[Rfam]
RNA sequence: UUGCGCCUGCGGAGGAUGCAGCGUCGUCUAUCUUGAAGGCCUUGCAGGCGGCCGGAUGGCGUACCGUCCCGUGAACCGCAAUUUUGCGGAUUCAAAACCACUCC
Numbered sequence: 001u002u003g004c005g006c007c008u009g010c011g012g013a014g015g016a017u018g019c020a021g022c023g024u025c026g027u028c029u030a031u032c033u034u035g036a037a038g039g040c041c042u043u044g045c046a047g048g049c050g051g052c053c054g055g056a057u058g059g060c061g062u063a064c065c066g067u068c069c070c071g072u073g074a075a076c077c078g079c080a081a082u083u084u085u086g087c088g089g090a091u092u093c094a095a096a097a098c099c100a101c102u103c104c
Base pairs, nucleotide, nucleotide: 005049006048007047008046009045010044011043014069015068017066018065021062022061023060024059025058026057027056028055038053039052040051041050076089077088078087079086080085